Notes
The family of this 96-nucleotide sequence from Rhizoctonia solani is "Small nucleolar RNA Z13/snr52". The base pairs follow the family's consensus structure, which was predicted with PFOLD. By type it is a C/D-box small nucleolar RNA.

[Rfam]
RNA sequence: ACCCACCCAGUGAUGAAGCAUUUCGGAUGUAAAUUUUUUUGUCCGAGAGCGCAUAAACCCAUGUGGAUAUUUCCGUUGCCUUCCUUCUGAGCCCAU
Numbered sequence: 001a002c003c004c005a006c007c008c009a010g011u012g013a014u015g016a017a018g019c020a021u022u023u024c025g026g027a028u029g030u031a032a033a034u035u036u037u038u039u040u041g042u043c044c045g046a047g048a049g050c051g052c053a054u055a056a057a058c059c060c061a062u063g064u065g066g067a068u069a070u071u072u073c074c075g076u077u078g079c080c081u082u083c084c085u086u087c088u089g090a091g092c093c094c095a096u
Base pairs, nucleotide, nucleotide: 005096024075025074026073027072